[Rfam]
RNA sequence: GGAGAAUUGAAAGGAGCUGUCCCUAGUACGAGAGGACCGGGAUGGACGCACCUCUGGUGGACCUGUUGUGGCGCCAGCCGCAUUGCAGGGUAGCUAUGUGCGGAAGGGAUAACCGCUGAAAGCAUCUAAGCGGGAAGCCCCCCUUGAGACGAGUUCUCCCUAUCAGAGCCGUGGAAGACGACCACGUUGAUAGGCUGGGUGUGGAAGUGCAGCAAUGUACGAAGCUUACCAGUACUAAUCGCUCGAUUG
Numbered sequence: 001g002g003a004g005a006a007u008u009g010a011a012a013g014g015a016g017c018u019g020u021c022c023c024u025a026g027u028a029c030g031a032g033a034g035g036a037c038c039g040g041g042a043u044g045g046a047c048g049c050a051c052c053u054c055u056g057g058u059g060g061a062c063c064u065g066u067u068g069u070g071g072c073g074c075c076a077g078c079c080g081c082a083u084u085g086c087a088g089g090g091u092a093g094c095u096a097u098g099u100g101c102g103g104a105a106g107g108g109a110u111a112a113c114c115g116c117u118g119a120a121a122g123c124a125u126c127u128a129a130g131c132g133g134g135a136a137g138c139c140c141c142c143c144u145u146g147a148g149a150c151g152a153g154u155u156c157u158c159c160c161u162a163u164c165a166g167a168g169c170c171g172u173g174g175a176a177g178a179c180g181a182c183c184a185c186g187u188u189g190a191u192a193g194g195c196u197g198g199g200u201g202u203g204g205a206a207g208u209g210c211a212g213c214a215a216u217g218u219a220c221g222a223a224g225c226u227u228a229c230c231a232g233u234a235c236u237a238a239u240c241g242c243u244c245g246a247u248u249g
Stems, first nucleotide, its partner, number of pairs: 001159008011145004017045007047102005055096003062089005067082006106140003113133005163246001166244004170186005191237003194233005199227001201225001207220005
This 249-nucleotide part of an RNA from Cohaesibacter gelatinilyticus belongs to the Rfam family "Bacterial large subunit ribosomal RNA".
Lineage of the source: Bacteria > Pseudomonadati > Alphaproteobacteria > Cohaesibacteraceae > Cohaesibacter.
Clan: LSU clan.